RNA sequence: AAGCUAGCCAAUGAAUCUGCUUACCUAAACAUGUUUCUGCAGAAAUUUUUAUUUUAAAAAGCUGGUAAUAGCACAGUCAUUUAUGAGCCUUAAGUAAAGUUGUUAAGGUCUCUGAAAAUGGCUAUAACA
Numbered sequence: 001a002a003g004c005u006a007g008c009c010a011a012u013g014a015a016u017c018u019g020c021u022u023a024c025c026u027a028a029a030c031a032u033g034u035u036u037c038u039g040c041a042g043a044a045a046u047u048u049u050u051a052u053u054u055u056a057a058a059a060a061g062c063u064g065g066u067a068a069u070a071g072c073a074c075a076g077u078c079a080u081u082u083a084u085g086a087g088c089c090u091u092a093a094g095u096a097a098a099g100u101u102g103u104u105a106a107g108g109u110c111u112c113u114g115a116a117a118a119u120g121g122c123u124a125u126a127a128c129a
Base pairs, nucleotide, nucleotide: 003066004065005064006063007062016043017042018041019040020039076122077121078120079119087109088108089107090106091105092104093103
Rfam assigns this 129-nucleotide sequence from Macaca mulatta to the family "Small nucleolar RNA SNORA33". Lineage of the source: Eukaryota > Gnathostomata > Euteleostomi > Sarcopterygii > Macaca. Rfam links the family to the GO terms nucleolus and RNA processing. ACA33 is a member of the H/ACA class of snoRNA that guide the sites of modification of uridines to pseudouridines. By type it is an H/ACA-box small nucleolar RNA. Rfam's curators put it in the seed alignment.